[Rfam]
Nucleotides: 067
Stems, first nucleotide, its partner, number of pairs: 009059003013055002018050002023045003029040004
Number, partner (000 for none) and nucleotide at each position: 001000a002000a003000a004000u005000a006000g007000c008000c009059c010058a011057g012000a013055u014054a015000g016000u017000a018050g019049c020000g021000a022000u023045a024044u025043c026000c027000u028000u029040u030039u031038u032037u033000a034000c035000a036000a037032a038031a039030a040029a041000a042000a043025g044024a045023u046000a047000a048000a049019g050018c051000g052000a053000a054014u055013a056000g057011c058010u059009g060000g061000a062000a063000a064000a065000g066000c067000u